Rfam assigns this 51-nucleotide sequence from Faecalibacterium prausnitzii to the family "RAGATH-5 RNA".
RNA sequence: ACGGAUACUCUGACGGGGUUGCACCGUAAAGCAGCCCCAUCCCAGCCCGCA
Numbered sequence: 001a002c003g004g005a006u007a008c009u010c011u012g013a014c015g016g017g018g019u020u021g022c023a024c025c026g027u028a029a030a031g032c033a034g035c036c037c038c039a040u041c042c043c044a045g046c047c048c049g050c051a
Stems, first nucleotide, its partner, number of pairs: 001027004013040001015038004020033003
Its family is annotated with catalytic activity in the Gene Ontology. The source organism's lineage runs through Bacteria, Bacillota, Clostridia, Eubacteriales and Faecalibacterium prausnitzii.